[Rfam]
RNA sequence: CAAGCACCUCGGUAGGCGAGGCGUCUGCAUGGAUACAGGCCACUGACCCCGAACGUCGAGAGACGCCCCGGGUCAGGACAGCUCUUCCCGGCCUAAGGGUUGAGCCCAAGUGGCUUCCGGAUAGUCCGGAUACGCCGUGCAGUGCCGAAGCUCCCACGAGAGGGGUGCGUU
Number, nucleotide and partner (000 for none) at each position: 001c000002a000003a000004g000005c167006a166007c165008c164009u163010c162011g157012g000013u096014a000015g152016g151017c150018g000019a000020g146021g145022c144023g000024u000025c142026u141027g140028c139029a138030u137031g136032g135033a000034u000035a000036c000037a000038g000039g114040c113041c112042a111043c110044u000045g074046a073047c072048c071049c070050c000051g000052a000053a000054c065055g064056u063057c062058g000059a000060g000061a000062g057063a056064c055065g054066c000067c000068c000069c000070g049071g048072g047073u046074c045075a000076g000077g000078a000079c000080a000081g105082c104083u103084c102085u000086u000087c099088c098089c097090g000091g000092c000093c000094u000095a000096a013097g089098g088099g087100u000101u000102g084103a083104g082105c081106c000107c000108a000109a000110g043111u042112g041113g040114c039115u000116u130117c129118c128119g000120g000121a000122u000123a000124g000125u000126c000127c000128g118129g117130a116131u000132a000133c000134g000135c032136c031137g030138u029139g028140c027141a026142g025143u000144g022145c021146c020147g000148a000149a000150g017151c016152u015153c000154c000155c000156a000157c011158g000159a000160g000161a000162g010163g009164g008165g007166u006167g005168c000169g000170u000171u000